[Rfam]
Nucleotides: 341
Stems, first nucleotide, its partner, number of pairs: 001150006009139004014044001016042005045098005053091003060085008069076002100134003107127005164236003169231001242338004246262002250258001266331004271325003275318002282312004287308001290305005
Number, partner (000 for none) and nucleotide at each position: 001150c002149g003148c004147c005146g006145c007000a008000a009139c010138a011137g012136u013000a014044a015000u016042u017041g018040a019039a020038c021000u022000u023000a024000g025000u026000a027000c028000g029000a030000g031000a032000g033000g034000a035000a036000c037000c038020g039019u040018u041017c042016a043000u044014u045098c046097a047096g048095a049094u050000a051000a052000u053091u054090g055089g056000u057000a058000u059000a060085u061084g062083g063082c064081g065080c066079u067078g068000c069076c070075u071000g072000a073000g074000c075070a076069g077000a078067c079066a080065g081064c082063g083062c084061c085060g086000a087000c088000g089055c090054u091053a092000c093000c094049a095048u096047c097046u098045g099000c100134c101133g102132g103000a104000u105000u106000a107127u108126g109125g110124c111123u112000g113000a114000a115000c116000g117000c118000c119000u120000c121000u122000a123111a124110g125109u126108c127107a128000g129000a130000a131000u132102c133101c134100g135000u136012g137011c138010u139009g140000g141000c142000c143000c144000g145006g146005c147004g148003g149002c150001g151000g152000g153000a154000a155000c156000a157000c158000a159000c160000u161000g162000u163000u164236a165235c166234g167000c168000a169231u170000a171000a172000c173000u174000g175000a176000g177000a178000a179000c180000g181000c182000g183000g184000g185000g186000g187000g188000g189000c190000c191000c192000g193000g194000c195000g196000c197000g198000c199000c200000c201000g202000u203000c204000a205000a206000c207000c208000a209000c210000g211000g212000c213000g214000c215000g216000c217000c218000c219000c220000c221000c222000u223000u224000c225000c226000a227000u228000c229000g230000c231169a232000c233000a234166c235165g236164u237000c238000u239000c240000c241000c242338g243337a244336u245335c246262c247261u248000u249000u250258g251000c252000a253000c254000a255000c256000g257000a258250c259000u260000u261247a262246g263000c264000u265000g266331c267330a268329a269328c270000g271325g272324g273323g274000c275318a276317u277000u278000g279000u280000a281000c282312g283311c284310g285309g286000c287308a288000g289000a290305g291304u292303a293302g294301c295000c296000u297000u298000g299000u300000u301294g302293c303292u304291a305290c306000g307000a308287u309285c310284c311283g312282c313000u314000g315000a316000g317276a318275u319000c320000c321000g322000g323273c324272c325271c326000c327000g328269g329268u330267u331266g332000u333000c334000u335245g336244a337243u338242u339000a340000c341000u
Rfam assigns this 341-nucleotide part of an RNA from Australozyma monospora to the family "Eukaryotic large subunit ribosomal RNA". The match comes from Rfam's covariance-model search (2938 bits). The organism belongs to Australozyma, within Eukaryota.